A member of the RNA family "RNase MRP" from Rhynchospora breviuscula, 242 nucleotides long. The family's RNA type in Rfam is ribozyme. The match comes from Rfam's covariance-model search (89 bits). About the family: RNase MRP is an enzymatically active ribonucleoprotein with two distinct roles in eukaryotes. In mitochondria it plays a direct role in the initiation of mitochondrial DNA replication. In the nucleus it is involved in precursor rRNA processing, where it cleaves the internal transcribed spacer 1 between 18S and 5.8S rRNAs.
[Rfam]
RNA sequence: AAAACACAGGAAGCAGUGAUUGGGCCAUAAGGCUCUGGAAAGUCCCCGGGCUUUACACGCAGAGAUGCGGCCGCGUAAACGCGGUUAUCUCUUGACAUCUGAUCCGCCUGCUUCGGUGGGGGGCUGAGACCUGGUGUGGAGCCCAAUGGGCCAGUUGUCAGAGAUAUAUAGCCGUUCUUACACAGUUAUUCACUGGGCUCAAAUCAUUGGGUCAACAGAACGGGGCUUACUCUUCUGUGUUC
Dot-bracket structure: ..(((((((((..((((((..((((......))))....[[[.[[[[..........((((....))))((((((....)))))).(((.....(((.((.........((((.......((((.......(...)....))))...)))).)).)))....)))........................)))))).((((((....)))))).........]]]]]]]....))))))))).
Numbered sequence: 001a002a003a004a005c006a007c008a009g010g011a012a013g014c015a016g017u018g019a020u021u022g023g024g025c026c027a028u029a030a031g032g033c034u035c036u037g038g039a040a041a042g043u044c045c046c047c048g049g050g051c052u053u054u055a056c057a058c059g060c061a062g063a064g065a066u067g068c069g070g071c072c073g074c075g076u077a078a079a080c081g082c083g084g085u086u087a088u089c090u091c092u093u094g095a096c097a098u099c100u101g102a103u104c105c106g107c108c109u110g111c112u113u114c115g116g117u118g119g120g121g122g123g124c125u126g127a128g129a130c131c132u133g134g135u136g137u138g139g140a141g142c143c144c145a146a147u148g149g150g151c152c153a154g155u156u157g158u159c160a161g162a163g164a165u166a167u168a169u170a171g172c173c174g175u176u177c178u179u180a181c182a183c184a185g186u187u188a189u190u191c192a193c194u195g196g197g198c199u200c201a202a203a204u205c206a207u208u209g210g211g212u213c214a215a216c217a218g219a220a221c222g223g224g225g226c227u228u229a230c231u232c233u234u235c236u237g238u239g240u241u242c
Stems, first nucleotide, its partner, number of pairs: 003241009014195006022035004040228003044225004058069004070085006087165003095158003099154002110151004121144004132136001197212006